Source information: A member of the RNA family "Actinobacteria sRNA Ms_IGR-5" from Nocardioides silvaticus, 207 nucleotides long. For this family Rfam cites "Identification of small RNAs in Mycobacterium smegmatis using heterologous Hfq" (Li et al., RNA, 2013). The organism belongs to Nocardioides, within Bacteria. The pairing is the family consensus, mapped onto this sequence.
RNA sequence: ACACGGGAAAGGAGGUGGUCCUAAGAAUGAGUUCUUAUAGGACGCGUGAGGUGGUUGCCCGCUAGGCAACCCCAGCGGCGGGGCGGAAUCGCCCCGUUCACUGAAGCCGGGCUGCCGGCGAAUCCAACGCAGCCACCCGACCCGCAGGCGAACCGGGCACGUCCCCCGGUGCGGUCCGAACGGACCAACGCCUGCGGGUCGCUUCAG
Numbered sequence: 001a002c003a004c005g006g007g008a009a010a011g012g013a014g015g016u017g018g019u020c021c022u023a024a025g026a027a028u029g030a031g032u033u034c035u036u037a038u039a040g041g042a043c044g045c046g047u048g049a050g051g052u053g054g055u056u057g058c059c060c061g062c063u064a065g066g067c068a069a070c071c072c073c074a075g076c077g078g079c080g081g082g083g084c085g086g087a088a089u090c091g092c093c094c095c096g097u098u099c100a101c102u103g104a105a106g107c108c109g110g111g112c113u114g115c116c117g118g119c120g121a122a123u124c125c126a127a128c129g130c131a132g133c134c135a136c137c138c139g140a141c142c143c144g145c146a147g148g149c150g151a152a153c154c155g156g157g158c159a160c161g162u163c164c165c166c167c168g169g170u171g172c173g174g175u176c177c178g179a180a181c182g183g184a185c186c187a188a189c190g191c192c193u194g195c196g197g198g199u200c201g202c203u204u205c206a207g
Stems, first nucleotide, its partner, number of pairs: 014059006060120004065116003070111003075107002138201013152170006